The record is a 146-nucleotide RNA sequence from Microcebus murinus, which matches "Small nucleolar RNA SNORA57" in Rfam.
RNA sequence: CCUUUUCUUGGCAGGGACUGGGCAUGUGGUCCCACUCCCUGCUAUGUACAAAGGCAGAGGGAAAGGGCUCCAGCCCCCUCAGGGUCACGCUGUCAAUGUUGGUGGCUUCCCAUCUGCUGGUUCUAUCCUCACGUGCUAGGAUCCUG
Numbered sequence: 001c002c003u004u005u006u007c008u009u010g011g012c013a014g015g016g017a018c019u020g021g022g023c024a025u026g027u028g029g030u031c032c033c034a035c036u037c038c039c040u041g042c043u044a045u046g047u048a049c050a051a052a053g054g055c056a057g058a059g060g061g062a063a064a065g066g067g068c069u070c071c072a073g074c075c076c077c078c079u080c081a082g083g084g085u086c087a088c089g090c091u092g093u094c095a096a097u098g099u100u101g102g103u104g105g106c107u108u109c110c111c112a113u114c115u116g117c118u119g120g121u122u123c124u125a126u127c128c129u130c131a132c133g134u135g136c137u138a139g140g141a142u143c144c145u146g
Stems, first nucleotide, its partner, number of pairs: 001054005012041006019034004081137002084134002099120007
Overview
Rfam's curators write: U99 belongs to the H/ACA class of snoRNAs which are thought to guide the sites of modification of uridines to pseudouridines, the target for this family is unknown. The source organism's lineage runs through Eukaryota, Bilateria, Deuterostomia, Gnathostomata and Microcebus. The family has 26 seed sequences and 1,736 matches in Rfam 15.1. It is annotated as an H/ACA-box small nucleolar RNA.